[Rfam]
RNA sequence: UUUCUGCACGUAUAGAAAUCAAUGUUGUUACUUUUACACUUUAUUUUCUAUGCUUUUCCUCUACAACUCUCUUUUAUUUUGGAGAAAUGAAGUGGAUUUCUACUCUUUGAUUGGAGAAAAAAAGUGGAUUUCUAUUUUUUUCAAUCAAAGGGAGUUGUAGGGGAAAAGCUUAGAAAAUGAAGUUU
Numbered sequence: 001u002u003u004c005u006g007c008a009c010g011u012a013u014a015g016a017a018a019u020c021a022a023u024g025u026u027g028u029u030a031c032u033u034u035u036a037c038a039c040u041u042u043a044u045u046u047u048c049u050a051u052g053c054u055u056u057u058c059c060u061c062u063a064c065a066a067c068u069c070u071c072u073u074u075u076a077u078u079u080u081g082g083a084g085a086a087a088u089g090a091a092g093u094g095g096a097u098u099u100c101u102a103c104u105c106u107u108u109g110a111u112u113g114g115a116g117a118a119a120a121a122a123a124g125u126g127g128a129u130u131u132c133u134a135u136u137u138u139u140u141u142c143a144a145u146c147a148a149a150g151g152g153a154g155u156u157g158u159a160g161g162g163g164a165a166a167a168g169c170u171u172a173g174a175a176a177a178u179g180a181a182g183u184u185u
Base pairs, nucleotide, nucleotide: 056165057164058163059162060161061160062159063158064157065156066155067154068153069152070151071150072149073148074147076145077144078143082142083141084140085139086138087137090136091135094132095131096130